The record is a 64-nucleotide RNA sequence, which matches "L2-Alphaproteobacteria ribosomal protein leader" in Rfam. The family's consensus secondary structure is taken from published work. Rfam classes the family as a cis-regulatory leader.

RNA sequence: GCCGACCUUCGGGGCGGUUUACUCAAUUCAGGCCUUGUGCCUGACAUACAACGGAAGACAGUUA
Number, nucleotide and partner (000 for none) at each position: 001g018002c017003c016004g015005a000006c014007c013008u012009u000010c000011g000012g008013g007014g006015c004016g003017g002018u001019u000020u000021a000022c000023u000024c000025a000026a000027u000028u044029c043030a042031g041032g040033c000034c000035u000036u000037g000038u000039g000040c032041c031042u030043g029044a028045c000046a000047u000048a000049c000050a000051a000052c000053g000054g000055a000056a000057g000058a000059c000060a000061g000062u000063u000064a000